[Rfam]
A member of the RNA family "MIR2619 microRNA precursor family" from Medicago truncatula, 171 nucleotides long.
A search with the family's covariance model found it, with a score of 155 bits.
The family's consensus secondary structure was predicted with RNAalifold.
Gene Ontology terms of the family: miRNA-mediated post-transcriptional gene silencing and RISC complex.
RNA sequence: AAAAAGCCCCAUAUGUUUUGAUUUUUUGACAGUUUUGAACCCCCAAGGCAAAAAAAAAUAAAAAAAUUUGACAUGUGGCACCUCUGUUAGGGUGCCACGUCAGCAUUGACCGAGUCAACAAUGGAUCGGGGGUCCAAAACUGCCAAAGAAUCAAAAUAUAGGGGGCUGUUU
Numbered sequence: 001a002a003a004a005a006g007c008c009c010c011a012u013a014u015g016u017u018u019u020g021a022u023u024u025u026u027u028g029a030c031a032g033u034u035u036u037g038a039a040c041c042c043c044c045a046a047g048g049c050a051a052a053a054a055a056a057a058a059u060a061a062a063a064a065a066a067u068u069u070g071a072c073a074u075g076u077g078g079c080a081c082c083u084c085u086g087u088u089a090g091g092g093u094g095c096c097a098c099g100u101c102a103g104c105a106u107u108g109a110c111c112g113a114g115u116c117a118a119c120a121a122u123g124g125a126u127c128g129g130g131g132g133u134c135c136a137a138a139a140c141u142g143c144c145a146a147a148g149a150a151u152c153a154a155a156a157u158a159u160a161g162g163g164g165g166c167u168g169u170u171u
Stems, first nucleotide, its partner, number of pairs: 001171002005167004012160017030142008039133006073100002076097007